[Rfam]
RNA sequence: AGGGCGACGGGGUCCACGGCGCGGGUGACGGUCAGGUAGUCGCGCAGGGCGGUGCCGUGCCGGUCCUC
Numbered sequence: 001a002g003g004g005c006g007a008c009g010g011g012g013u014c015c016a017c018g019g020c021g022c023g024g025g026u027g028a029c030g031g032u033c034a035g036g037u038a039g040u041c042g043c044g045c046a047g048g049g050c051g052g053u054g055c056c057g058u059g060c061c062g063g064u065c066c067u068c
Stems, first nucleotide, its partner, number of pairs: 005062002008059002012029002015027003035056004040052004
RNA: ASdes TB sRNA